Background
The family of this 88-nucleotide RNA sequence from Thalassovita gelatinovora is "Glycine riboswitch aptamer". This family represents the bacterial glycine riboswitch. Glycine riboswitches usually consist of two metabolite-binding aptamers domains with similar structures in tandem. The aptamers cooperatively bind glycine to regulate the expression of downstream genes.

RNA sequence: AGUUAUCGAUCGGGAGAACCGGCUUAGCCGGUGCCGAAGGAGCAACCGCCCCCGGAAACUCUCAGGCCCAAGGGACCGAUCGGGUGAA
Dot-bracket structure: .....((((((((.....((((.....)))).(((((..(((...(.......)....))))).)))........)))))))).....
The source organism's lineage runs through Bacteria, Pseudomonadota, Alphaproteobacteria, Rhodobacterales and Thalassovita. The base pairs follow the family's consensus structure. It scores 61 bits against the family's covariance model.